[Rfam]
RNA sequence: UAGUGUUAUCAAAAUAUGCCAAAGACAGCAACGGCCUAGCGCUUAAUCAUGUUGCCGAGGUAAAAGUAUAAAAAACUUUUAAACCUACGUCUUUGAUGUGGGUUUAUUUAUUUGGUUAU
Number, nucleotide and partner (000 for none) at each position: 001u000002a000003g000004u000005g000006u000007u000008a000009u000010c000011a000012a000013a000014a000015u000016a000017u000018g000019c000020c000021a000022a000023a000024g000025a000026c000027a000028g055029c054030a053031a052032c051033g050034g042035c041036c000037u000038a000039g000040c000041g035042c034043u000044u000045a000046a000047u000048c000049a000050u033051g032052u031053u030054g029055c028056c000057g000058a000059g000060g000061u000062a000063a000064a000065a000066g000067u000068a000069u000070a000071a000072a000073a000074a000075a000076c000077u000078u000079u000080u000081a000082a104083a103084c102085c101086u100087a099088c098089g097090u096091c095092u000093u000094u000095g091096a090097u089098g088099u087100g086101g085102g084103u083104u082105u000106a000107u000108u000109u000110a000111u000112u000113u000114g000115g000116u000117u000118a000119u000
The family of this 119-nucleotide sequence from Erysipelothrix sp. HDW6B is "Ribosomal protein L10 leader".
Rfam classes the family as a cis-regulatory leader.
Rfam describes the family as follows. This family is a putative r-protein leader autoregulatory structure found in B. subtilis and other low-GC Gram-positive bacteria.